This 172-nucleotide RNA sequence from Clostridium sp. CAG:7 belongs to the Rfam family "Clostridiales-1 RNA". The family has 194 seed sequences and 1,172 matches in Rfam 15.1.
RNA sequence: UGAUGCCAGGGCAAAAAGGGCGGAAAUCCGGCGCAGGCUUGCCUGCAGGAGGAUUUUUGAACCUGGGACCUGCUAAAAACAUGAGUAAGAAGCCAUUAUUUGAAGAAAAAUAAGGGGAUUAGGAAUGUUUUUAGAAUUGCGGGAGUGCAAAGCACGGAGCAAUUCGGUAUCA
Numbered sequence: 001u002g003a004u005g006c007c008a009g010g011g012c013a014a015a016a017a018g019g020g021c022g023g024a025a026a027u028c029c030g031g032c033g034c035a036g037g038c039u040u041g042c043c044u045g046c047a048g049g050a051g052g053a054u055u056u057u058u059g060a061a062c063c064u065g066g067g068a069c070c071u072g073c074u075a076a077a078a079a080c081a082u083g084a085g086u087a088a089g090a091a092g093c094c095a096u097u098a099u100u101u102g103a104a105g106a107a108a109a110a111u112a113a114g115g116g117g118a119u120u121a122g123g124a125a126u127g128u129u130u131u132u133a134g135a136a137u138u139g140c141g142g143g144a145g146u147g148c149a150a151a152g153c154a155c156g157g158a159g160c161a162a163u164u165c166g167g168u169a170u171c172a
Base pairs, nucleotide, nucleotide: 001172002171003170004169005168006167007166010070011069018062021059022058023057024056025055026054027053028052029051032048033046034045035044036043037042075132076131077130078129079128080127081126082125086121087120088119093115094114096113097112098111099110100109134165135164136163137162138161139160140159145155146154147153148152